[Rfam]
Shown here is a 137-nucleotide sequence from Lynx pardinus, a member of the family "Small nucleolar RNA SNORA42/SNORA80 family". It scores 106 bits against the family's covariance model. The organism belongs to Lynx, within Eukaryota. Rfam classes the family as an H/ACA-box small nucleolar RNA. The members of this family belong to the H/ACA class of snoRNAs that guide the sites of modification of uridines to pseudouridines. Gene Ontology terms of the family: nucleolus and RNA processing.

RNA sequence: ACACAGUGAUGGAUUGAUGGUGGGCCCUUCUCUGUGGGCCUCUCAGAGUAUACCUGUGCCAGAGAAGCAUGCAGCCCUGAACCACUGCCCAGCCUCCUCACUAGUGGGCUGUGGGCACUGAAGGGGGCUGUACAUUG
Numbered sequence: 001a002c003a004c005a006g007u008g009a010u011g012g013a014u015u016g017a018u019g020g021u022g023g024g025c026c027c028u029u030c031u032c033u034g035u036g037g038g039c040c041u042c043u044c045a046g047a048g049u050a051u052a053c054c055u056g057u058g059c060c061a062g063a064g065a066a067g068c069a070u071g072c073a074g075c076c077c078u079g080a081a082c083c084a085c086u087g088c089c090c091a092g093c094c095u096c097c098u099c100a101c102u103a104g105u106g107g108g109c110u111g112u113g114g115g116c117a118c119u120g121a122a123g124g125g126g127g128c129u130g131u132a133c134a135u136u137g
Base pairs, nucleotide, nucleotide: 002058003057004056006053007052008051015048018045019044020043022041023040024039025037026036072130073129074128075127076126077125083120084119088115089114090111091110092109093108094107095106